[Rfam]
RNA sequence: CCUGCCCUCGAGGAGCUCACAGUCUAGUAUGUCCCAGCCCUACUAGACUGAGGCUCCUUGAGGGCAGG
Numbered sequence: 001c002c003u004g005c006c007c008u009c010g011a012g013g014a015g016c017u018c019a020c021a022g023u024c025u026a027g028u029a030u031g032u033c034c035c036a037g038c039c040c041u042a043c044u045a046g047a048c049u050g051a052g053g054c055u056c057c058u059u060g061a062g063g064g065c066a067g068g
Stems, first nucleotide, its partner, number of pairs: 001068017020050010030036002
Dot-bracket structure: (((((((((((((((((..((((((((((((...))....)))))))))).)))))))))))))))))

mir-28 microRNA precursor family: a 68-nucleotide sequence from Lynx pardinus. The family is grouped with related families in Rfam's "mir-28 clan". NCBI's taxonomy places the organism under Eukaryota, Vertebrata, Dipnotetrapodomorpha, Felidae, Lynx. Rfam links the family to the GO terms RISC complex and miRNA-mediated post-transcriptional gene silencing. On this family, see Lagos-Quintana et al., Science 2001: "Identification of novel genes coding for small expressed RNAs".